[Rfam]
RNA sequence: GACCUUGCCGCAUGGCAAAAAAUAAAUAGCGUAACGGAUGCUGGUAGGUUGAAAGAUUCGACGGUUUCCAAUUAAGCAAAGCAGACCC
Numbered sequence: 001g002a003c004c005u006u007g008c009c010g011c012a013u014g015g016c017a018a019a020a021a022a023u024a025a026a027u028a029g030c031g032u033a034a035c036g037g038a039u040g041c042u043g044g045u046a047g048g049u050u051g052a053a054a055g056a057u058u059c060g061a062c063g064g065u066u067u068c069c070a071a072u073u074a075a076g077c078a079a080a081g082c083a084g085a086c087c088c
Stems, first nucleotide, its partner, number of pairs: 006017004040065002047059001049056002
Shown here is an 88-nucleotide RNA, a member of the family "RT-17 RNA". Pairs were carried over by alignment from the consensus structure, which is taken from published work. Rfam's curators put it in the seed alignment.